narK RNA: a 72-nucleotide sequence from Pseudomonas benzenivorans. Rfam classes the family as a cis-regulatory element. The match comes from Rfam's covariance-model search (65 bits).
RNA sequence: GGCUCAGCUCUUGCAAAGGCAUUGUCACGAGCAGCCAAUGGCGGCUGCCUUCACGAACGACAAAGACGUCGC
Numbered sequence: 001g002g003c004u005c006a007g008c009u010c011u012u013g014c015a016a017a018g019g020c021a022u023u024g025u026c027a028c029g030a031g032c033a034g035c036c037a038a039u040g041g042c043g044g045c046u047g048c049c050u051u052c053a054c055g056a057a058c059g060a061c062a063a064a065g066a067c068g069u070c071g072c
Stems, first nucleotide, its partner, number of pairs: 031048006